[Rfam]
RNA sequence: GCUUUCAACAUCCCCGUUCCAGAUCGAGCGGAGUACGCGCUGAGCGCGCCGUCCUCGUAUUUGGAGCUGAAGGC
Numbered sequence: 001g002c003u004u005u006c007a008a009c010a011u012c013c014c015c016g017u018u019c020c021a022g023a024u025c026g027a028g029c030g031g032a033g034u035a036c037g038c039g040c041u042g043a044g045c046g047c048g049c050c051g052u053c054c055u056c057g058u059a060u061u062u063g064g065a066g067c068u069g070a071a072g073g074c
Stems, first nucleotide, its partner, number of pairs: 001074007016067007026056003030052001